[Rfam]
Small nucleolar RNA R38: a 76-nucleotide sequence from Rhodnius prolixus. The family has 19 seed sequences and 2,295 matches in Rfam 15.1. It is annotated as a C/D-box small nucleolar RNA. It scores 51 bits against the family's covariance model. snoR38 is a C/D box small nucleolar RNA conserved across yeast, human, Arabidopsis and rice. It is encoded in the intron of elongation factor-1 gamma in both pombe and cerevisiae. snoR38 guides the methylation of 2'-O-ribose sites in 28S rRNA.
RNA sequence: UUGUAUAAAUGAUGAUUAAAUAGUUAUCCCUGUCUUACAUUUAUUUCUGGGGAAAAAUUAUUUAUCUGAUAAAUAU
Number, nucleotide and partner (000 for none) at each position: 001u000002u075003g074004u073005a000006u071007a070008a000009a000010u000011g000012a000013u000014g000015a000016u000017u000018a000019a000020a000021u000022a000023g000024u000025u000026a000027u000028c000029c000030c000031u000032g000033u000034c000035u000036u000037a000038c000039a000040u000041u000042u000043a000044u000045u000046u000047c000048u000049g000050g000051g000052g000053a000054a000055a000056a000057a000058u000059u000060a000061u000062u000063u000064a000065u000066c000067u000068g000069a000070u007071a006072a000073a004074u003075a002076u000